[Rfam]
RNA sequence: AUUUCUCUGCGGGUGGGGAUUUGUUGCAUUACUUGAUCAUGUGACUAUAAGAGUAUUGCACUUGUCCCGGCCUGUGGAGGAAAA
Numbered sequence: 001a002u003u004u005c006u007c008u009g010c011g012g013g014u015g016g017g018g019a020u021u022u023g024u025u026g027c028a029u030u031a032c033u034u035g036a037u038c039a040u041g042u043g044a045c046u047a048u049a050a051g052a053g054u055a056u057u058g059c060a061c062u063u064g065u066c067c068c069g070g071c072c073u074g075u076g077g078a079g080g081a082a083a084a
Base pairs, nucleotide, nucleotide: 004080005079006078009075010074011073012072013071014070016068017067018066019065020064023061024060026059027058028057030055031054032053033052034051
Shown here is an 84-nucleotide RNA sequence from Monodelphis domestica, a member of the family "mir-92 microRNA precursor family". The source organism's lineage runs through Eukaryota, Eumetazoa, Sarcopterygii, Didelphinae and Monodelphis. From the family's description: This family represents the microRNA precursor mir-92. Human miR-92 has two predicted hairpin precursor sequences: mir-92-1 on chromosome 13 and mir-92-2 on chromosome X. miR-92 has also been cloned from mouse embryonic stem cells. The mature sequence is excised from the 3' arm of the hairpin. Pairs were carried over by alignment from the consensus structure, which was predicted with PFOLD. Rfam 15.1 lists 1,347 matches to the family in 653 species. For this family Rfam cites "Embryonic stem cell-specific MicroRNAs" (Houbaviy et al., Dev Cell, 2003). Rfam links the family to the GO terms RISC complex and miRNA-mediated post-transcriptional gene silencing.